[Rfam]
RNA sequence: UUGAAGCUCCAUCUACAAAUGGAUAAGACUUUGGUCUAAUUGUAUAGGAGUUUUUGAACUAAAAAAGGAGCAAUAGCUUCCCUCUUGAUAAAACAAGAGGGCAUUAUUGCUCCUUUUUU
Numbered sequence: 001u002u003g004a005a006g007c008u009c010c011a012u013c014u015a016c017a018a019a020u021g022g023a024u025a026a027g028a029c030u031u032u033g034g035u036c037u038a039a040u041u042g043u044a045u046a047g048g049a050g051u052u053u054u055u056g057a058a059c060u061a062a063a064a065a066a067g068g069a070g071c072a073a074u075a076g077c078u079u080c081c082c083u084c085u086u087g088a089u090a091a092a093a094c095a096a097g098a099g100g101g102c103a104u105u106a107u108u109g110c111u112c113c114u115u116u117u118u119u
Stems, first nucleotide, its partner, number of pairs: 008023005064116013079101002082099005
Source information
The record is a 119-nucleotide RNA from Helichrysum italicum, which matches "Plastid-psbA-1 3UTR RNA" in Rfam. It is annotated as a cis-regulatory element. For this family Rfam cites "Retrograde signaling in plants: A critical review focusing on the GUN pathway and beyond" (Richter et al., Plant Commun, 2023). The family's consensus secondary structure was predicted with LocARNA. The sequence is in the family's curated seed alignment.